[Rfam]
RNA: mir-191 microRNA precursor family
Organism: Pelusios castaneus
RNA sequence: AGCGCGAGAGCGGGCAACGGAAUCCCAAAAGCAGCUGUCUUCCUCUGACAUCCAGCUGCGAUUGGAUUUCGUUACCUGCUCUCCUGCCC
Number, nucleotide and partner (000 for none) at each position: 001a000002g000003c000004g000005c000006g000007a000008g000009a080010g079011c078012g077013g076014g000015c000016a000017a072018c071019g070020g069021a068022a067023u066024c065025c064026c000027a063028a062029a000030a000031g059032c058033a057034g056035c055036u054037g053038u000039c000040u000041u000042c000043c000044u000045c000046u000047g000048a000049c000050a000051u000052c000053c037054a036055g035056c034057u033058g032059c031060g000061a000062u028063u027064g025065g024066a023067u022068u021069u020070c019071g018072u017073u000074a000075c000076c013077u012078g011079c010080u009081c000082u000083c000084c000085u000086g000087c000088c000089c000